[Rfam]
RNA sequence: AAUUCCAUUCGUAGGAACAAAGAGAAGCAGAUUUAUUAUAUACCUGAUAAGUACCAAUACGAAAUGGGU
Number, nucleotide and partner (000 for none) at each position: 001a000002a000003u022004u021005c000006c000007a000008u017009u016010c015011g000012u000013a000014g000015g010016a009017a008018c000019a000020a000021a004022g003023a000024g000025a000026a000027g000028c000029a000030g000031a000032u000033u000034u000035a000036u000037u000038a000039u000040a000041u000042a000043c068044c067045u066046g000047a000048u000049a000050a000051g060052u059053a058054c000055c000056a000057a000058u053059a052060c051061g000062a000063a000064a000065u000066g045067g044068g043069u000
The family of this 69-nucleotide RNA from Olea europaea is "Plastid-clpP 5UTR RNA". The match comes from Rfam's covariance-model search (78 bits). On this family, see Richter et al., Plant Commun 2023: "Retrograde signaling in plants: A critical review focusing on the GUN pathway and beyond". Rfam 15.1 lists 2,105 matches to the family in 526 species. The family's consensus secondary structure was predicted with LocARNA. The family's RNA type in Rfam is cis-regulatory element. Plastid clpP is a non-coding RNA (ncRNA) recognised in plastids. It was found in the prime untranslated region (5UTR) of a protease complex subunit (clpP) in plastids, suggesting a posible cis-regulatory function.